[Rfam]
Shown here is a 75-nucleotide RNA from Durio zibethinus, a member of the family "Plastid-ycf2 5UTR RNA".
It scores 85 bits against the family's covariance model.
Lineage of the source: Eukaryota > Gunneridae > malvids > Helicteroideae > Durio.
Plastid ycf2 is a non-coding RNA (ncRNA) recognised in plastids. It was found in the prime untranslated region (5UTR) of ycf2 genes, it presents a tRNA-like motif which suggests it can be involved in mRNA maturation, particularly involved in defining the precise 5' end of the transcript.
Rfam classes the family as a cis-regulatory element.
Nucleotides: 075
Stems, first nucleotide, its partner, number of pairs: 003075006010026005041068002044066006051059001
Number, partner (000 for none) and nucleotide at each position: 001000g002000u003075g004074c005073a006072u007071c008070c009000g010026g011025u012024a013023a014022g015000a016000a017000u018000u019000g020000a021000a022014c023013u024012u025011a026010c027000a028000a029000a030000u031000u032000c033000a034000c035000c036000a037000a038000u039000u040000a041068u042067g043000a044066g045065u046064u047063g048062g049061g050000c051059g052000c053000u054000u055000u056000a057000a058000c059051c060000a061049u062048u063047u064046a065045g066044c067042u068041a069000g070008g071007g072006a073005u074004g075003c